[Rfam]
RNA: Small nucleolar RNA SNORA49
RNA sequence: CUUCCCUUUCCUUACUCCAGCUACUCUGUCCUCAGUGGAGUUGUCUGGCAUUGACAGGGGAUACAGCACUUUGGCUCUCUCGCCUCUCAGUUAGGAUCUUCUUCUUACACGUGGCUUGUGAGAGAGUUAACAAU
Numbered sequence: 001c002u003u004c005c006c007u008u009u010c011c012u013u014a015c016u017c018c019a020g021c022u023a024c025u026c027u028g029u030c031c032u033c034a035g036u037g038g039a040g041u042u043g044u045c046u047g048g049c050a051u052u053g054a055c056a057g058g059g060g061a062u063a064c065a066g067c068a069c070u071u072u073g074g075c076u077c078u079c080u081c082g083c084c085u086c087u088c089a090g091u092u093a094g095g096a097u098c099u100u101c102u103u104c105u106u107a108c109a110c111g112u113g114g115c116u117u118g119u120g121a122g123a124g125a126g127u128u129a130a131c132a133a134u
Stems, first nucleotide, its partner, number of pairs: 003061006011053001017048004022043001023041005073128003077124002086113001088111001090108001092107004